[Rfam]
RNA sequence: CCACAUGACUCGCCUAAUCCUCAAAUCUGAUGAGGAACGGAGGAACCACAUCUGGGGUGAACUCGCCAACGUGCGAGCGGGUAUCCUUCACCCGAACCCGUCAGCUAACUCCGGCGGCGAUUAGAAGGAGAGUG
Number, nucleotide and partner (000 for none) at each position: 001c000002c000003a000004c000005a000006u000007g000008a000009c000010u000011c119012g118013c117014c116015u000016a000017a000018u036019c035020c034021u033022c032023a031024a000025a000026u000027c000028u000029g000030a000031u023032g022033a021034g020035g019036a018037a000038c113039g112040g111041a110042g109043g000044a000045a000046c000047c054048a053049c000050a000051u000052c000053u048054g047055g099056g098057g097058u000059g000060a000061a000062c000063u076064c075065g074066c073067c000068a000069a000070c000071g000072u000073g066074c065075g064076a063077g000078c000079g093080g092081g091082u090083a000084u000085c000086c000087u000088u000089c000090a082091c081092c080093c079094g000095a000096a000097c057098c056099c055100g000101u000102c000103a000104g000105c000106u000107a000108a000109c042110u041111c040112c039113g038114g000115c000116g014117g013118c012119g011120a000121u000122u000123a000124g000125a000126a000127g000128g000129a000130g000131a000132g000133u000134g000

A member of the RNA family "c-di-AMP riboswitch aptamer (ydaO/yuaA leader)" from Tumebacillus algifaecis, 134 nucleotides long. It scores 90 bits against the family's covariance model.